The family of this 131-nucleotide RNA from Tribolium castaneum is "Small nucleolar RNA SNORA79". Pairs were carried over by alignment from the consensus structure, which was predicted with RNAalifold.

RNA sequence: CGACAAUUGUUCCUUUUGUUGAGCGUUCAAAUGCUUUUCGAAAUUUUAAGGUUGUCGUAAAGAAAAUGAGUUACUUCACGCCGAACGUUGUCAAGUUUAUAGACGUUUGGGUUUUGCUAACUCUUACAUUU
Dot-bracket structure: ((((((((.....(((((..(((..........)))..)))))......))))))))..........((((((.......(((((((((...(....)...))))))))).......))))))........
Rfam's curators write: ACA65 (SNORA79) is a member of the H/ACA class of snoRNAs that guide the sites of modification of uridines to pseudouridines. This snoRNA was identified by computational screening and its expression in mouse experimentally verified by Northern blot and primer extension analysis. Rfam classes the family as an H/ACA-box small nucleolar RNA. Taxonomically the source falls in Tribolium (Eukaryota, Pterygota, Coleoptera, Cucujiformia). Rfam links the family to the GO terms RNA processing and nucleolus.